[Rfam]
The family of this 143-nucleotide RNA sequence from Orbus hercynius is "FMN riboswitch aptamer (RFN element)". The RFN element is a highly conserved domain that is found frequently in the 5'-untranslated regions of prokaryotic mRNAs that encode for flavin mononucleotide (FMN) biosynthesis and transport proteins. This element is a metabolite-dependent riboswitch that directly binds FMN in the absence of proteins. In Bacillus subtilis, the riboswitch most likely controls gene expression by causing premature transcription termination within the 5' untranslated region of the ribDEAHT operon and precluding access to the ribosome-binding site of ypaA mRNA.The FMN riboswitch structure, reported in present an FMN-bound six-stem junction, adopts a butterfly-like scaffold, stapled together by opposingly directed but nearly identically folded peripheral domains. It scores 109 bits against the family's covariance model. The base pairs follow the family's consensus structure, which is taken from published work.
RNA sequence: GAUAAUUCUCAGGGCGGGGUGUAAGUCCCCACCGGUGGUGAUAGCCCACGAGCGCUUAAUGGUGGAUUAAACACGAUUAAGGUCUAGCAGAUUUGGUGAAAUUCCAAGGCCGACAGUGAUAGUCUGGAUAAAAGAGAGUUGCU
Dot-bracket structure: ..((((((((......(((.......))).[[((((((.....[[))))..((.................................))...(((((.......)))))]])).(((.....]]))).......))))))))..